This 150-nucleotide RNA from Cytobacillus dafuensis belongs to the Rfam family "c-di-AMP riboswitch aptamer (ydaO/yuaA leader)".

[Rfam]
RNA sequence: AAAAAAUCCUUGCUGAAUCUUAUUUUCAGAACGGGGGAACCAAUAUGAUAAACAGAUUGUUUAUCAGGGGUGAAUCUUAGCAUCUUGUUAAGAAGGGAUCUCUCAAUCCCUAAUCCGUCAGCUAACCUCGUAAGCAUAUUGAGAGAAGGG
Numbered sequence: 001a002a003a004a005a006a007u008c009c010u011u012g013c014u015g016a017a018u019c020u021u022a023u024u025u026u027c028a029g030a031a032c033g034g035g036g037g038a039a040c041c042a043a044u045a046u047g048a049u050a051a052a053c054a055g056a057u058u059g060u061u062u063a064u065c066a067g068g069g070g071u072g073a074a075u076c077u078u079a080g081c082a083u084c085u086u087g088u089u090a091a092g093a094a095g096g097g098a099u100c101u102c103u104c105a106a107u108c109c110c111u112a113a114u115c116c117g118u119c120a121g122c123u124a125a126c127c128u129c130g131u132a133a134g135c136a137u138a139u140u141g142a143g144a145g146a147a148g149g150g
Base pairs, nucleotide, nucleotide: 011136012135013134014133018030019029020028031131032130033129034128035127036126041067068116069115070114076092077091078090079089095110096109097108098107

NCBI's taxonomy places the organism under Bacteria, Bacillati, Caryophanales, Bacillaceae, Cytobacillus.